[Rfam]
RNA sequence: AAGCGAUUAUCGUAACAGUAAUCUAACUUAGUACGAGAGGAACCGUUAGUUGCACCCUUCAUGAAUGGACUUAGUUGAGUAGCUAGUGGUCCGAACGGGCGGUGCUUUGGCGUAGGGUUGAAAGCCUCUAAACCUGGAGCCUAGCUGAAGUCAUACGAUGAUUCCCUUGCAAAAGGGAGGCAGUGAUGAUUUGAGGAAGAAUACGUGGUUCUUUGGAAUCAUGGAGACCUAUGAGUAGAACAAUAAAUCAAAUGGCACUGUCUGGGCGAUCGUUUGCAGACGACUUAUCAUUUCCCAAGGAUUGUACGUGUUCGAGUUGGCUCUGUCCAACGAGGAAUUGAGAUUUAGCUUGGUGAAUGGAUCGAA
Numbered sequence: 001a002a003g004c005g006a007u008u009a010u011c012g013u014a015a016c017a018g019u020a021a022u023c024u025a026a027c028u029u030a031g032u033a034c035g036a037g038a039g040g041a042a043c044c045g046u047u048a049g050u051u052g053c054a055c056c057c058u059u060c061a062u063g064a065a066u067g068g069a070c071u072u073a074g075u076u077g078a079g080u081a082g083c084u085a086g087u088g089g090u091c092c093g094a095a096c097g098g099g100c101g102g103u104g105c106u107u108u109g110g111c112g113u114a115g116g117g118u119u120g121a122a123a124g125c126c127u128c129u130a131a132a133c134c135u136g137g138a139g140c141c142u143a144g145c146u147g148a149a150g151u152c153a154u155a156c157g158a159u160g161a162u163u164c165c166c167u168u169g170c171a172a173a174a175g176g177g178a179g180g181c182a183g184u185g186a187u188g189a190u191u192u193g194a195g196g197a198a199g200a201a202u203a204c205g206u207g208g209u210u211c212u213u214u215g216g217a218a219u220c221a222u223g224g225a226g227a228c229c230u231a232u233g234a235g236u237a238g239a240a241c242a243a244u245a246a247a248u249c250a251a252a253u254g255g256c257a258c259u260g261u262c263u264g265g266g267c268g269a270u271c272g273u274u275u276g277c278a279g280a281c282g283a284c285u286u287a288u289c290a291u292u293u294c295c296c297a298a299g300g301a302u303u304g305u306a307c308g309u310g311u312u313c314g315a316g317u318u319g320g321c322u323c324u325g326u327c328c329a330a331c332g333a334g335g336a337a338u339u340g341a342g343a344u345u346u347a348g349c350u351u352g353g354u355g356a357a358u359g360g361a362u363c364g365a366a
Base pairs, nucleotide, nucleotide: 006162007161008160009159010158011157012156013155016147017146018145019144021051023049024048025047026046027045052105053104054103055102059099060098066093067092068091069090070089071086072085073084074083075082076081109141110140115135116134117133118132119131169263267364268363269362270361271360272288273287276284293356294355296353297351298350299349301344302343308338309337311335313334316331317330318329319328320327
About this RNA
Rfam assigns this 366-nucleotide part of an RNA from Blastocystis hominis to the family "Eukaryotic large subunit ribosomal RNA". The family's consensus secondary structure is taken from published work. The source organism's lineage runs through Eukaryota, Sar, Bigyra, Blastocystidae and Blastocystis hominis. A search with the family's covariance model found it, with a score of 3034 bits.